[Rfam]
Record summary: Actinobacteria sRNA Ms_IGR-5: a 212-nucleotide sequence from Leekyejoonella antrihumi. NCBI's taxonomy places the organism under Bacteria, Actinomycetota, Micrococcales, Dermacoccaceae, Leekyejoonella.

RNA sequence: ACACGAGAGAGGAGGUGGUCCAAGAAAUGAAUUCUUCUAGGACGCGUGAGGUGGUUGCGCGCUAGCGCACCGCAGCCCGGUGACCACCUUCUCGGUGGACCGACAUCGGACGAUGCGGUAGCGAUUCCAACGCAGCUGCCGCAGCCCGUGGGAGCGUGAUUCGUCCAUCACGCACCCGUGCCACCCGGCACGGAGCCCACGGGCUGUCCCAU
Numbered sequence: 001a002c003a004c005g006a007g008a009g010a011g012g013a014g015g016u017g018g019u020c021c022a023a024g025a026a027a028u029g030a031a032u033u034c035u036u037c038u039a040g041g042a043c044g045c046g047u048g049a050g051g052u053g054g055u056u057g058c059g060c061g062c063u064a065g066c067g068c069a070c071c072g073c074a075g076c077c078c079g080g081u082g083a084c085c086a087c088c089u090u091c092u093c094g095g096u097g098g099a100c101c102g103a104c105a106u107c108g109g110a111c112g113a114u115g116c117g118g119u120a121g122c123g124a125u126u127c128c129a130a131c132g133c134a135g136c137u138g139c140c141g142c143a144g145c146c147c148g149u150g151g152g153a154g155c156g157u158g159a160u161u162c163g164u165c166c167a168u169c170a171c172g173c174a175c176c177c178g179u180g181c182c183a184c185c186c187g188g189c190a191c192g193g194a195g196c197c198c199a200c201g202g203g204c205u206g207u208c209c210c211a212u
Stems, first nucleotide, its partner, number of pairs: 015058005060123005066117004142206011155172006